[Rfam]
RNA sequence: UAGUAAGCCUCCAGUGUUCCUGGGUCUACAGCCACCCUGUGCACUCCUAUAAUGCUUACCAGAGAAGCUCUUGAGAUAGUUUGCAGCUUUGUUCUGCUCUCUCCAGAACAAGGUUUCAGAAAUUUCAGACAAUU
Numbered sequence: 001u002a003g004u005a006a007g008c009c010u011c012c013a014g015u016g017u018u019c020c021u022g023g024g025u026c027u028a029c030a031g032c033c034a035c036c037c038u039g040u041g042c043a044c045u046c047c048u049a050u051a052a053u054g055c056u057u058a059c060c061a062g063a064g065a066a067g068c069u070c071u072u073g074a075g076a077u078a079g080u081u082u083g084c085a086g087c088u089u090u091g092u093u094c095u096g097c098u099c100u101c102u103c104c105a106g107a108a109c110a111a112g113g114u115u116u117c118a119g120a121a122a123u124u125u126c127a128g129a130c131a132a133u134u
Base pairs, nucleotide, nucleotide: 003059004058005057006056007055008054017043019041022037023036024035025034072127073126074125075124076123087113088112089111090110091109092108094106095105096104

The record is a 134-nucleotide RNA sequence from Jaculus jaculus, which matches "Small nucleolar RNA SNORA9" in Rfam.
Its family is annotated with nucleolus and RNA processing in the Gene Ontology.
The family is grouped with related families in Rfam's "SNORA9 clan".
ACA9 is a member of the H/ACA class of snoRNA that guide the sites of modification of uridines to pseudouridines.
A search with the family's covariance model found it, with a score of 103 bits.